RNA sequence: GGAAGAGAAACAUCCCUGGUGGGAUGCCCGGACUUCAAAUCCGGCGGAAGGUGUCUUGCGUCUUCGGUGGGUUCGAUUCCCGCCUCUUCC
Numbered sequence: 001g002g003a004a005g006a007g008a009a010a011c012a013u014c015c016c017u018g019g020u021g022g023g024a025u026g027c028c029c030g031g032a033c034u035u036c037a038a039a040u041c042c043g044g045c046g047g048a049a050g051g052u053g054u055c056u057u058g059c060g061u062c063u064u065c066g067g068u069g070g071g072u073u074c075g076a077u078u079c080c081c082g083c084c085u086c087u088u089c090c
Base pairs, nucleotide, nucleotide: 001090002089003088004087005086006085007084011026012025013024014023015022016021028044029043030042031041032040047065048064049063050062051061068082069081070080071079